The record is a 93-nucleotide RNA sequence from Parapusillimonas granuli, which matches "Glycine riboswitch aptamer" in Rfam.

RNA sequence: GACAAUCUGGAGAGCGGCGCAUUGGCGCCCACCGAAGGGGAACCCGGCGCACGCCCGGGUGAAACUCUCAGGUAAACGGACAGAUGGGGCGUC
Numbered sequence: 001g002a003c004a005a006u007c008u009g010g011a012g013a014g015c016g017g018c019g020c021a022u023u024g025g026c027g028c029c030c031a032c033c034g035a036a037g038g039g040g041a042a043c044c045c046g047g048c049g050c051a052c053g054c055c056c057g058g059g060u061g062a063a064a065c066u067c068u069c070a071g072g073u074a075a076a077c078g079g080a081c082a083g084a085u086g087g088g089g090c091g092u093c
Base pairs, nucleotide, nucleotide: 003087005085006084007083008082009081016029017028018027019026031073032072033071034069035068038067039066040065045059
Record summary:
The base pairs follow the family's consensus structure.